RNA sequence: UGUUUGAAUGUGAGAAUUGGAUGGAACCAAACUCCUUUUAGCUUACAUAGUGUUAAAACAAGUAGGAGUUUGGUUUCCUCCAAUGUCUCACCUUCAAAAU
Number, nucleotide and partner (000 for none) at each position: 001u000002g000003u000004u097005u096006g095007a094008a093009u000010g000011u090012g089013a088014g087015a000016a084017u083018u082019g081020g080021a079022u000023g077024g076025a075026a074027c073028c072029a071030a070031a000032c068033u067034c066035c065036u000037u000038u000039u000040a000041g000042c000043u000044u000045a000046c000047a000048u000049a000050g000051u000052g000053u000054u000055a000056a000057a000058a000059c000060a000061a000062g000063u000064a000065g035066g034067a033068g032069u000070u030071u029072g028073g027074u026075u025076u024077c023078c000079u021080c020081c019082a018083a017084u016085g000086u000087c014088u013089c012090a011091c000092c000093u008094u007095c006096a005097a004098a000099a000100u000
Shown here is a 100-nucleotide sequence from Thalictrum thalictroides, a member of the family "MIR2275 microRNA precursor family".
The organism belongs to Thalictrum, within Eukaryota.
Its family is annotated with RISC complex and miRNA-mediated post-transcriptional gene silencing in the Gene Ontology.